[Rfam]
RNA sequence: UCUCUUCCAUUUGCCCCGAAGAGUGCCUAUAUUCGACCUGUCGGCUUGACCGACUAUGGUGAUAAAUGGGCGAUGUAAUAAGCCGUUCGGACCCGGGGGCGGUACCCGGCGCCUCCACCAAAAACUGUCGUGACGGACAGCUUUUGCUGGGGGCGAAACAGGAUCGACGAAGGUGUAAAGAUCGUACUUUUGCCCGGCAUUGUACCACCGUCAUCGGGCUAACUCAGUAGUUGCAAACGACAACUAUGCGGAAGCACGUCUCGCUGCGUAAUGCGGUGCGAUAGCUUCAAAUAAACUCCUGAGGGUUCGCACCUUCAGGCGGGGUUCGGAGGUACCUGGCAACAGAAACCUCCACU
Numbered sequence: 001u002c003u004c005u006u007c008c009a010u011u012u013g014c015c016c017c018g019a020a021g022a023g024u025g026c027c028u029a030u031a032u033u034c035g036a037c038c039u040g041u042c043g044g045c046u047u048g049a050c051c052g053a054c055u056a057u058g059g060u061g062a063u064a065a066a067u068g069g070g071c072g073a074u075g076u077a078a079u080a081a082g083c084c085g086u087u088c089g090g091a092c093c094c095g096g097g098g099g100c101g102g103u104a105c106c107c108g109g110c111g112c113c114u115c116c117a118c119c120a121a122a123a124a125c126u127g128u129c130g131u132g133a134c135g136g137a138c139a140g141c142u143u144u145u146g147c148u149g150g151g152g153g154c155g156a157a158a159c160a161g162g163a164u165c166g167a168c169g170a171a172g173g174u175g176u177a178a179a180g181a182u183c184g185u186a187c188u189u190u191u192g193c194c195c196g197g198c199a200u201u202g203u204a205c206c207a208c209c210g211u212c213a214u215c216g217g218g219c220u221a222a223c224u225c226a227g228u229a230g231u232u233g234c235a236a237a238c239g240a241c242a243a244c245u246a247u248g249c250g251g252a253a254g255c256a257c258g259u260c261u262c263g264c265u266g267c268g269u270a271a272u273g274c275g276g277u278g279c280g281a282u283a284g285c286u287u288c289a290a291a292u293a294a295a296c297u298c299c300u301g302a303g304g305g306u307u308c309g310c311a312c313c314u315u316c317a318g319g320c321g322g323g324g325u326u327c328g329g330a331g332g333u334a335c336c337u338g339g340c341a342a343c344a345g346a347a348a349c350c351u352c353c354a355c356u
Base pairs, nucleotide, nucleotide: 040054041053042052043051044050058194059193060192061191062190068187070185071184072183073182074181083173084172087170088169089168093109094108095107096106097105110155111154112153113152114151115150116149195210196209197208200221202219205217206216322337323336324335325334328353329352330351331350332349333348
Shown here is a 356-nucleotide sequence from Aquamicrobium lusatiense, a member of the family "Alphaproteobacteria transfer-messenger RNA".
NCBI's taxonomy places the organism under Bacteria, Pseudomonadati, Pseudomonadota, Hyphomicrobiales, Aquamicrobium.
The base pairs follow the family's consensus structure, which is taken from published work.
By type it is a non-coding RNA gene.
A search with the family's covariance model found it, with a score of 306 bits.